[Rfam]
RNA sequence: UAUUGUCAGGAAUGAUGAAUCAGUUAGAUGUAUGAAGUCACCUUAUGAGCUAAUAUUUUGAGGCAUACUAGUGUCUGACCUGCCAAUC
Number, nucleotide and partner (000 for none) at each position: 001u000002a087003u086004u085005g084006u000007c082008a081009g080010g079011a000012a000013u000014g000015a000016u000017g000018a000019a000020u000021c000022a000023g000024u000025u000026a000027g000028a000029u000030g000031u000032a000033u000034g000035a000036a000037g000038u000039c000040a000041c000042c000043u000044u000045a000046u000047g000048a000049g000050c000051u000052a000053a000054u000055a000056u000057u000058u000059u000060g000061a000062g000063g000064c000065a000066u000067a000068c000069u000070a000071g000072u000073g000074u000075c000076u000077g000078a000079c010080c009081u008082g007083c000084c005085a004086a003087u002088c000